[Rfam]
RNA sequence: UUAUUGCAUUAGGGGUGCCCAUAGUGCUGGGCUGAGAUGUGCAGAGACGCAUGGACUCUAGAACCUGUAAGUUAACGCUUGCGUAGGAAAAUGCACCGAACUUUAA
Number, nucleotide and partner (000 for none) at each position: 001u000002u000003a000004u000005u000006g094007c093008a092009u091010u090011a059012g058013g057014g056015g000016u053017g032018c031019c030020c029021a028022u000023a000024g000025u000026g000027c000028u021029g020030g019031g018032c017033u000034g000035a000036g000037a000038u000039g052040u051041g050042c049043a000044g000045a000046g000047a000048c000049g042050c041051a040052u039053g016054g000055a000056c014057u013058c012059u011060a000061g000062a000063a000064c087065c086066u085067g084068u081069a080070a079071g078072u000073u000074a000075a000076c000077g000078c071079u070080u069081g068082c000083g000084u067085a066086g065087g064088a000089a000090a010091a009092u008093g007094c006095a000096c000097c000098g000099a000100a000101c000102u000103u000104u000105a000106a000
This 106-nucleotide RNA sequence from Limosilactobacillus reuteri belongs to the Rfam family "TPP riboswitch aptamer (THI element)". Taxonomically the source falls in Limosilactobacillus reuteri (Bacteria, Lactobacillales, Lactobacillaceae, Limosilactobacillus). Gene Ontology term of the family: thiamine pyrophosphate binding.